[Rfam]
RNA sequence: CCCACCGGAGCACCGACGGCAGCAGCGGGAGACCCAGGUUCUUCGGGUGACGUCAGCGCCACCCUCGGGGUGAAGCCGUCCAUCGGCGGCAGGCCACCACUUCUCGGCCUAACCCGACAGCUCAUCUCGCCGGCUGGAGGAGUA
Numbered sequence: 001c002c003c004a005c006c007g008g009a010g011c012a013c014c015g016a017c018g019g020c021a022g023c024a025g026c027g028g029g030a031g032a033c034c035c036a037g038g039u040u041c042u043u044c045g046g047g048u049g050a051c052g053u054c055a056g057c058g059c060c061a062c063c064c065u066c067g068g069g070g071u072g073a074a075g076c077c078g079u080c081c082a083u084c085g086g087c088g089g090c091a092g093g094c095c096a097c098c099a100c101u102u103c104u105c106g107g108c109c110u111a112a113c114c115c116g117a118c119a120g121c122u123c124a125u126c127u128c129g130c131c132g133g134c135u136g137g138a139g140g141a142g143u144a
Stems, first nucleotide, its partner, number of pairs: 001133002007023001025130006035067001068115003076089004092109004
This 144-nucleotide RNA sequence from Isoptericola sediminis belongs to the Rfam family "c-di-AMP riboswitch aptamer (ydaO/yuaA leader)".
It scores 51 bits against the family's covariance model.
The base pairs follow the family's consensus structure.
The organism belongs to Isoptericola, within Bacteria.